[Rfam]
RNA sequence: CGACGUUCUCAGGGCGGGGUGAAAAUCCCCACCGGCGGUAACGACAGUCCUGAGCUUUCAGGGACUGUCUCAGCCCGCGAGCGCCUGGCCGGACGAAAGAGCCGGCAGGGUCAGCAGAUUCGGUGAAAUUCCGAAGCCGACGGUCAUAGUCCGGAUGGAAGAGAGCGGGA
Numbered sequence: 001c002g003a004c005g006u007u008c009u010c011a012g013g014g015c016g017g018g019g020u021g022a023a024a025a026u027c028c029c030c031a032c033c034g035g036c037g038g039u040a041a042c043g044a045c046a047g048u049c050c051u052g053a054g055c056u057u058u059c060a061g062g063g064a065c066u067g068u069c070u071c072a073g074c075c076c077g078c079g080a081g082c083g084c085c086u087g088g089c090c091g092g093a094c095g096a097a098a099g100a101g102c103c104g105g106c107a108g109g110g111u112c113a114g115c116a117g118a119u120u121c122g123g124u125g126a127a128a129u130u131c132c133g134a135a136g137c138c139g140a141c142g143g144u145c146a147u148a149g150u151c152c153g154g155a156u157g158g159a160a161g162a163g164a165g166c167g168g169g170a
Stems, first nucleotide, its partner, number of pairs: 004167007017029003031150002033139002035078004073137002081115002119135005141153003
FMN riboswitch aptamer (RFN element): a 170-nucleotide RNA from Afipia sp. P52-10. The RFN element is a highly conserved domain that is found frequently in the 5'-untranslated regions of prokaryotic mRNAs that encode for flavin mononucleotide (FMN) biosynthesis and transport proteins. Lineage of the source: Bacteria > Pseudomonadota > Hyphomicrobiales > Nitrobacteraceae > Afipia.